[Rfam]
RNA: Mason-Pfizer monkey virus packaging signal
RNA sequence: UGGUGCCCAAAUGUGUGGCUUUGUAUACGGGGGAAUUCGCGAGGAAAGAGGCGUGUAAGUGUUCGGAGGAAGAGAAGAAAAAAAAAAAGUGAAAGUCAGUUGGACACAGAUUGCUUCGGGAGCCUGCCACGCUGUUCUUAAAGUUACAGUAGCGCCUAAUUGUGGGACAAGAAUUAAGUAAGCAUAGUUUUUGUUAAGUAAUUAAAAGAAGCUUUAAAGACACAGGGAGUAAAGGUUAGGAAUAAUGAUCUUUUUAUGUUUUUUGACUUUAUUAAGGACACCUGUCCGU
Numbered sequence: 001u002g003g004u005g006c007c008c009a010a011a012u013g014u015g016u017g018g019c020u021u022u023g024u025a026u027a028c029g030g031g032g033g034a035a036u037u038c039g040c041g042a043g044g045a046a047a048g049a050g051g052c053g054u055g056u057a058a059g060u061g062u063u064c065g066g067a068g069g070a071a072g073a074g075a076a077g078a079a080a081a082a083a084a085a086a087a088a089g090u091g092a093a094a095g096u097c098a099g100u101u102g103g104a105c106a107c108a109g110a111u112u113g114c115u116u117c118g119g120g121a122g123c124c125u126g127c128c129a130c131g132c133u134g135u136u137c138u139u140a141a142a143g144u145u146a147c148a149g150u151a152g153c154g155c156c157u158a159a160u161u162g163u164g165g166g167a168c169a170a171g172a173a174u175u176a177a178g179u180a181a182g183c184a185u186a187g188u189u190u191u192u193g194u195u196a197a198g199u200a201a202u203u204a205a206a207a208g209a210a211g212c213u214u215u216a217a218a219g220a221c222a223c224a225g226g227g228a229g230u231a232a233a234g235g236u237u238a239g240g241a242a243u244a245a246u247g248a249u250c251u252u253u254u255u256a257u258g259u260u261u262u263u264u265g266a267c268u269u270u271a272u273u274a275a276g277g278a279c280a281c282c283u284g285u286c287c288g289u
Base pairs, nucleotide, nucleotide: 006033007032008031013028014027015026038050040048094144096143100141101140110136112134115131118128119127150170152168155166156165157164158163175216176215177214178212179211223265224264225263226262227261228260229259230258233251234250235249236248237247238246274289276287277286278285279284